[Rfam]
RNA sequence: GAGCUAUGAAGAAGACUUUAAAGGAAUCUGAGAUUCCGUUGAAGACAUAAGAUCCAACUCUGAGCUCGCCGUCCUA
Numbered sequence: 001g002a003g004c005u006a007u008g009a010a011g012a013a014g015a016c017u018u019u020a021a022a023g024g025a026a027u028c029u030g031a032g033a034u035u036c037c038g039u040u041g042a043a044g045a046c047a048u049a050a051g052a053u054c055c056a057a058c059u060c061u062g063a064g065c066u067c068g069c070c071g072u073c074c075u076a
Base pairs, nucleotide, nucleotide: 001067002066003065004064

The family of this 76-nucleotide sequence from Leptosomus discolor is "Small nucleolar RNA SNORD19". The base pairs follow the family's consensus structure. Rfam links the family to the GO terms nucleolus and RNA processing. NCBI's taxonomy places the organism under Eukaryota, Bilateria, Deuterostomia, Dinosauria, Leptosomus. A search with the family's covariance model found it, with a score of 47 bits. The family has 22 seed sequences and 1,431 matches in Rfam 15.1.